Rfam assigns this 56-nucleotide sequence to the family "nhaA-I RNA". Acidobacteria, Alphaproteobacteria, Betaproteobacteria and Gammaproteobacteria, Verrucomicrobia, cand. division NC10. The base pairs follow the family's consensus structure, which is taken from published work. Rfam's curators put it in the seed alignment.
RNA sequence: GGGUGUUGGCUGCAUACCGCAGUGGAACAGGUUCAUGCGCAGGUCGGGCCGCCGCG
Numbered sequence: 001g002g003g004u005g006u007u008g009g010c011u012g013c014a015u016a017c018c019g020c021a022g023u024g025g026a027a028c029a030g031g032u033u034c035a036u037g038c039g040c041a042g043g044u045c046g047g048g049c050c051g052c053c054g055c056g
Stems, first nucleotide, its partner, number of pairs: 005028001006026002009023003038056003042053003